[Rfam]
RNA sequence: UGCCUAAACCUGCGACUUCGUUCGUCAGGCAUGGCAUAAAAACCCAUCGAAGAUAUUAAGCUCGUCGUCAGAGCACUCUUCGAUGGGUCAUAUCGGGAAACCGGUAUGGGUGGUCGCAAGACCAUC
Numbered sequence: 001u002g003c004c005u006a007a008a009c010c011u012g013c014g015a016c017u018u019c020g021u022u023c024g025u026c027a028g029g030c031a032u033g034g035c036a037u038a039a040a041a042a043c044c045c046a047u048c049g050a051a052g053a054u055a056u057u058a059a060g061c062u063c064g065u066c067g068u069c070a071g072a073g074c075a076c077u078c079u080u081c082g083a084u085g086g087g088u089c090a091u092a093u094c095g096g097g098a099a100a101c102c103g104g105u106a107u108g109g110g111u112g113g114u115c116g117c118a119a120g121a122c123c124a125u126c
Stems, first nucleotide, its partner, number of pairs: 001036004009029004013024002043087011060074004089108008109126006

Annotation:
A member of the RNA family "LOOT RNA", 126 nucleotides long. It is one of the family's seed sequences. It is annotated as a small RNA.